[Rfam]
RNA sequence: ACGCCUCUGAAGAGCAGGAGCCUCGAGCUCCUCGCCGAAGGAGAAAGCCGGCGACGCGGCCGGUGAAGCUCUCAGGCCCAGCGACAGAGGGGGAGCC
Numbered sequence: 001a002c003g004c005c006u007c008u009g010a011a012g013a014g015c016a017g018g019a020g021c022c023u024c025g026a027g028c029u030c031c032u033c034g035c036c037g038a039a040g041g042a043g044a045a046a047g048c049c050g051g052c053g054a055c056g057c058g059g060c061c062g063g064u065g066a067a068g069c070u071c072u073c074a075g076g077c078c079c080a081g082c083g084a085c086a087g088a089g090g091g092g093g094a095g096c097c
Base pairs, nucleotide, nucleotide: 002092004090005089006088007087008086009085016032017031018030019029034077035076036075037073038072041071042070043069047064048063049062050061051060
Dot-bracket structure: .(.((((((......((((.........)))).(((((..(((...(((((........)))))....))))).))).......)))))).).....

Annotation
Shown here is a 97-nucleotide RNA from Motilibacter rhizosphaerae, a member of the family "Glycine riboswitch aptamer". It scores 52 bits against the family's covariance model. This family represents the bacterial glycine riboswitch. NCBI's taxonomy places the organism under Bacteria, Actinomycetota, Actinomycetes, Motilibacteraceae, Motilibacter.